[Rfam]
Rfam assigns this 94-nucleotide RNA sequence from Branchiostoma belcheri to the family "mir-2060 microRNA precursor family". Rfam links the family to the GO terms RISC complex and miRNA-mediated post-transcriptional gene silencing. It scores 73 bits against the family's covariance model. Taxonomically the source falls in Branchiostoma (Eukaryota, Eumetazoa, Bilateria, Deuterostomia). The base pairs follow the family's consensus structure, which was predicted with RNAalifold.
RNA sequence: GUUCACCUGUGUGUGAAUAGUGUUCAGCACCAAGGACAGGCAUGUUCACCUGUGUGUGGAUAGUGUUCAGUACCAAGGGCAAGCAUACUCAAGU
Numbered sequence: 001g002u003u004c005a006c007c008u009g010u011g012u013g014u015g016a017a018u019a020g021u022g023u024u025c026a027g028c029a030c031c032a033a034g035g036a037c038a039g040g041c042a043u044g045u046u047c048a049c050c051u052g053u054g055u056g057u058g059g060a061u062a063g064u065g066u067u068c069a070g071u072a073c074c075a076a077g078g079g080c081a082a083g084c085a086u087a088c089u090c091a092a093g094u
Stems, first nucleotide, its partner, number of pairs: 006083001008081003018075001020073005026067005032061001034055001036053005
Dot-bracket structure: .....(.(((.......(.(((((.(((((.(.(.(((((........))))).).....).))))).))))).)...))).)...........